Rfam assigns this 591-nucleotide part of an RNA from Pseudobythopirellula maris to the family "Bacterial large subunit ribosomal RNA". A search with the family's covariance model found it, with a score of 2675 bits.

RNA sequence: CCCGCAGCUAGACGGAAAGACCCCGUGAACCUUUACUGUAGGCUGAUAUUGGGCUGUGGUAUGUACUGUGUAGGAUAGGUGGGAGGCUUCGAACUCCGGGCGCCAGCUCGGAGGGAGCCGUUGGUGAAAUACCACCCUUUGCAUGCUUUAGUUCUAACGCUGAUUCCCGUGAAUCCGGGCAGCGGACAGUGUCAGUUGGGCAGUUUGACUGGGGCGGUCUCCUCCUAAAGAGUAACGGAGGAGCCCAAUAGGUACCCUCAGCCUGGUUGGCAAUCAGGCAUCGAGCGUAAAGGUAGAAGGGUGCUAAACUGCGAGACUCGUCAGUCGAGCAGGUACGAAAGUAGGGCUUAGUGAUCCGGUGGUCCCGAAUGGAAGGGCCAUCGCUCAACAGAUAAAAGGUACUCCGGGGAUAACAGGCUUAUCGCUCCCGAGCGUCCAUAGCGGCGGAGCGGUUUGGCACCUCGAUGUCGGCUCAUCACAUCCUGGGGGUGAAGAAGCUCCCAAGGGUUUGGCUGUUCGCCAAUGAAAGUGGUACGUGAGCUGGGUUCAGACCGUCGUGAGACAGGUCGGUCCCUAUCUACUGUGGGCGCA
Numbered sequence: 001c002c003c004g005c006a007g008c009u010a011g012a013c014g015g016a017a018a019g020a021c022c023c024c025g026u027g028a029a030c031c032u033u034u035a036c037u038g039u040a041g042g043c044u045g046a047u048a049u050u051g052g053g054c055u056g057u058g059g060u061a062u063g064u065a066c067u068g069u070g071u072a073g074g075a076u077a078g079g080u081g082g083g084a085g086g087c088u089u090c091g092a093a094c095u096c097c098g099g100g101c102g103c104c105a106g107c108u109c110g111g112a113g114g115g116a117g118c119c120g121u122u123g124g125u126g127a128a129a130u131a132c133c134a135c136c137c138u139u140u141g142c143a144u145g146c147u148u149u150a151g152u153u154c155u156a157a158c159g160c161u162g163a164u165u166c167c168c169g170u171g172a173a174u175c176c177g178g179g180c181a182g183c184g185g186a187c188a189g190u191g192u193c194a195g196u197u198g199g200g201c202a203g204u205u206u207g208a209c210u211g212g213g214g215c216g217g218u219c220u221c222c223u224c225c226u227a228a229a230g231a232g233u234a235a236c237g238g239a240g241g242a243g244c245c246c247a248a249u250a251g252g253u254a255c256c257c258u259c260a261g262c263c264u265g266g267u268u269g270g271c272a273a274u275c276a277g278g279c280a281u282c283g284a285g286c287g288u289a290a291a292g293g294u295a296g297a298a299g300g301g302u303g304c305u306a307a308a309c310u311g312c313g314a315g316a317c318u319c320g321u322c323a324g325u326c327g328a329g330c331a332g333g334u335a336c337g338a339a340a341g342u343a344g345g346g347c348u349u350a351g352u353g354a355u356c357c358g359g360u361g362g363u364c365c366c367g368a369a370u371g372g373a374a375g376g377g378c379c380a381u382c383g384c385u386c387a388a389c390a391g392a393u394a395a396a397a398g399g400u401a402c403u404c405c406g407g408g409g410a411u412a413a414c415a416g417g418c419u420u421a422u423c424g425c426u427c428c429c430g431a432g433c434g435u436c437c438a439u440a441g442c443g444g445c446g447g448a449g450c451g452g453u454u455u456g457g458c459a460c461c462u463c464g465a466u467g468u469c470g471g472c473u474c475a476u477c478a479c480a481u482c483c484u485g486g487g488g489g490u491g492a493a494g495a496a497g498c499u500c501c502c503a504a505g506g507g508u509u510u511g512g513c514u515g516u517u518c519g520c521c522a523a524u525g526a527a528a529g530u531g532g533u534a535c536g537u538g539a540g541c542u543g544g545g546u547u548c549a550g551a552c553c554g555u556c557g558u559g560a561g562a563c564a565g566g567u568c569g570g571u572c573c574c575u576a577u578c579u580a581c582u583g584u585g586g587g588c589g590c591a
Stems, first nucleotide, its partner, number of pairs: 001587007010579003014574002022408004027404002029400005035204004042196007051154006058147008068137001078136005085119003094113008158184003164181001166179004207219004220242006243389001245346002252304006258284002261279006285294002309332004315326003334343003357383007365376002417458003421455001422452007432442002469544001470542004474536001475533005482507002485502006509523005550568004554563003
Rfam 15.1 lists 51,934 matches to the family in 10,816 species.